Source information:
The family of this 80-nucleotide RNA sequence from Curvibacter sp. AEP1-3 is "int-alpA RNA". Taxonomically the source falls in Curvibacter (Bacteria, Pseudomonadati, Pseudomonadota, Burkholderiales). The family has 167 seed sequences and 577 matches in Rfam 15.1. Rfam describes the family as follows. Acidobacteria (1 example), Planctomycetes (1 example), Proteobacteria.

[Rfam]
RNA sequence: GCCCCAGAUAGGCCGGGACUAAUUACCCCGACCGAAAAGCGAAUAACCUUCAUUCGCCUGCUGGGGCUUCUAUUUGAAGG
Numbered sequence: 001g002c003c004c005c006a007g008a009u010a011g012g013c014c015g016g017g018a019c020u021a022a023u024u025a026c027c028c029c030g031a032c033c034g035a036a037a038a039g040c041g042a043a044u045a046a047c048c049u050u051c052a053u054u055c056g057c058c059u060g061c062u063g064g065g066g067c068u069u070c071u072a073u074u075u076g077a078a079g080g
Stems, first nucleotide, its partner, number of pairs: 001067007011033002014030004039057005047080005